Notes
The record is a 197-nucleotide RNA sequence from Weissella cibaria, which matches "Listeria sRNA rli28" in Rfam. The family's consensus secondary structure was predicted with RNAalifold. For this family Rfam cites "Muscarinic cholinergic control of vasopressin secretion from the acute hypothalamoneurohypophysial explant" (Michels et al., Neuroendocrinology, 1991).
[Rfam]
RNA sequence: GGUUUUAUGUUAAAAUAAUUUCAACAGGUUAAAGGCGGUGGCUAAUCCAACACGGAAGGAGUUGAUGCCUAUGAGCGUUUGUUCGUAGACUUCAAAAUCUUAUGAAAGGAGGAUUAGCUGAUAAUGUCUGUUCACGACGCGCUAACAUUGAUGUUAGCGUUCGGUGGCUUCGUGUUGGCUUUGUUGACGUACGUCGA
Number, nucleotide and partner (000 for none) at each position: 001g000002g000003u000004u000005u000006u000007a000008u000009g000010u000011u000012a000013a000014a000015a000016u000017a000018a000019u000020u000021u000022c000023a000024a000025c000026a000027g000028g000029u000030u000031a000032a000033a000034g000035g000036c000037g000038g000039u166040g165041g000042c163043u000044a000045a000046u000047c000048c000049a000050a000051c000052a000053c000054g000055g000056a000057a000058g101059g100060a091061g090062u089063u088064g000065a000066u000067g086068c085069c000070u000071a000072u000073g000074a000075g000076c000077g000078u000079u000080u000081g000082u000083u000084c000085g068086u067087a000088g063089a062090c061091u060092u000093c000094a000095a000096a000097a000098u000099c000100u059101u058102a000103u000104g000105a000106a000107a000108g000109g000110a000111g000112g000113a000114u000115u000116a000117g000118c000119u000120g000121a000122u000123a000124a000125u000126g146127u145128c000129u000130g142131u141132u000133c139134a000135c000136g000137a000138c000139g133140c000141g131142c130143u000144a000145a127146c126147a000148u000149u000150g000151a000152u000153g000154u000155u000156a000157g000158c000159g000160u000161u000162c000163g042164g000165u040166g039167g000168c000169u000170u000171c000172g192173u191174g190175u189176u000177g000178g000179c000180u000181u000182u000183g000184u000185u000186g000187a000188c000189g175190u174191a173192c172193g000194u000195c000196g000197a000